[Rfam]
RNA sequence: CCUUUGGAGUGUCAAACAAACACAAGUAGGUUUAUCCGAAAGUGGACACGAUGAACAAGGAA
Numbered sequence: 001c002c003u004u005u006g007g008a009g010u011g012u013c014a015a016a017c018a019a020a021c022a023c024a025a026g027u028a029g030g031u032u033u034a035u036c037c038g039a040a041a042g043u044g045g046a047c048a049c050g051a052u053g054a055a056c057a058a059g060g061a062a
Stems, first nucleotide, its partner, number of pairs: 001060004009049005021044003029037002
A member of the RNA family "RAGATH-18 RNA" from Fervidicella metallireducens, 62 nucleotides long. A search with the family's covariance model found it, with a score of 65 bits.